Shown here is a 209-nucleotide RNA sequence from Pedobacter sp. BAL39, a member of the family "Pedo-repair RNA". The family's consensus secondary structure is taken from published work. The sequence is in the family's curated seed alignment. The organism belongs to Pedobacter, within Bacteria. By type it is a cis-regulatory element.
[Rfam]
RNA sequence: AACGAUACUUUGCAAAAACAGACGUCGGAAAUCUAAACAGGCAAAGCGCGGUGAAAAUGAAUGCCCGGUUUCUGUAUAUUUGUGCGGAAAUAUGGGCGUUCUCCGUAGGCCUGUUAGAGAGUUUCGGCUCUCGUCCCCUCCGACGGGGUGUUUUUGCAUGCGGGGAGCGCCCAUAUUUCUUGCUUUCCUCUUUUAGAAUCAUUGCUUUA
Numbered sequence: 001a002a003c004g005a006u007a008c009u010u011u012g013c014a015a016a017a018a019c020a021g022a023c024g025u026c027g028g029a030a031a032u033c034u035a036a037a038c039a040g041g042c043a044a045a046g047c048g049c050g051g052u053g054a055a056a057a058u059g060a061a062u063g064c065c066c067g068g069u070u071u072c073u074g075u076a077u078a079u080u081u082g083u084g085c086g087g088a089a090a091u092a093u094g095g096g097c098g099u100u101c102u103c104c105g106u107a108g109g110c111c112u113g114u115u116a117g118a119g120a121g122u123u124u125c126g127g128c129u130c131u132c133g134u135c136c137c138c139u140c141c142g143a144c145g146g147g148g149u150g151u152u153u154u155u156g157c158a159u160g161c162g163g164g165g166a167g168c169g170c171c172c173a174u175a176u177u178u179c180u181u182g183c184u185u186u187c188c189u190c191u192u193u194u195a196g197a198a199u200c201a202u203u204g205c206u207u208u209a
Stems, first nucleotide, its partner, number of pairs: 012157009023145006036115007047108001048106004053102001059101009068091007117132006135148003160194001162192004167187001169185001172182002